RNA sequence: GUGCCUAAAACUAACAGUAAGGAAAACCGUACAACCUUGCUAACAGCUCGGUUGAUGUGCUUCAAGGCAGUGAAGUGGAUUCUCAUUUCAUGAAGCGCCAAUUUUUGAAUGGGCACAGGUCGUCCCUUUGAACUCAGGCGCACUCACUACUUUUCGAGGCGUAGAGUUUGGGUGAAGCGAUCUGCCCG
Numbered sequence: 001g002u003g004c005c006u007a008a009a010a011c012u013a014a015c016a017g018u019a020a021g022g023a024a025a026a027c028c029g030u031a032c033a034a035c036c037u038u039g040c041u042a043a044c045a046g047c048u049c050g051g052u053u054g055a056u057g058u059g060c061u062u063c064a065a066g067g068c069a070g071u072g073a074a075g076u077g078g079a080u081u082c083u084c085a086u087u088u089c090a091u092g093a094a095g096c097g098c099c100a101a102u103u104u105u106u107g108a109a110u111g112g113g114c115a116c117a118g119g120u121c122g123u124c125c126c127u128u129u130g131a132a133c134u135c136a137g138g139c140g141c142a143c144u145c146a147c148u149a150c151u152u153u154u155c156g157a158g159g160c161g162u163a164g165a166g167u168u169u170g171g172g173u174g175a176a177g178c179g180a181u182c183u184g185c186c187c188g
Stems, first nucleotide, its partner, number of pairs: 004022003008018001032054005039047001059096005110188005117183007126172002130169005144161001

The record is a 188-nucleotide RNA sequence from Bactrocera dorsalis, which matches "U12 minor spliceosomal RNA" in Rfam. It is annotated as a spliceosomal small nuclear RNA.